The family of this 135-nucleotide RNA from Ursus maritimus is "Small nucleolar RNA SNORA70".

[Rfam]
RNA sequence: CUGCAGCCAACGAAGCAAGCUGUGCUCUCUCCCCAUGGGGGGUCUGGUGUGCAACAGUGGCCAGCAGUGGCCUCCUCAGUAGUGUGUGCGGCCUGUUGCUUACAUGGGUUGCCUUACAGGACCUUGGCCACAGCC
Numbered sequence: 001c002u003g004c005a006g007c008c009a010a011c012g013a014a015g016c017a018a019g020c021u022g023u024g025c026u027c028u029c030u031c032c033c034c035a036u037g038g039g040g041g042g043u044c045u046g047g048u049g050u051g052c053a054a055c056a057g058u059g060g061c062c063a064g065c066a067g068u069g070g071c072c073u074c075c076u077c078a079g080u081a082g083u084g085u086g087u088g089c090g091g092c093c094u095g096u097u098g099c100u101u102a103c104a105u106g107g108g109u110u111g112c113c114u115u116a117c118a119g120g121a122c123c124u125u126g127g128c129c130a131c132a133g134c135c
Stems, first nucleotide, its partner, number of pairs: 002053004019048004025042004079122002089111006
The base pairs follow the family's consensus structure, which was predicted with PFOLD. It is annotated as an H/ACA-box small nucleolar RNA. Gene Ontology terms of the family: RNA processing and nucleolus. Rfam's curators write: snoRNA U70 seems to be exclusive to mammals and is a member of the H/ACA class of snoRNA which contain H (ANANNA) and ACA box motifs.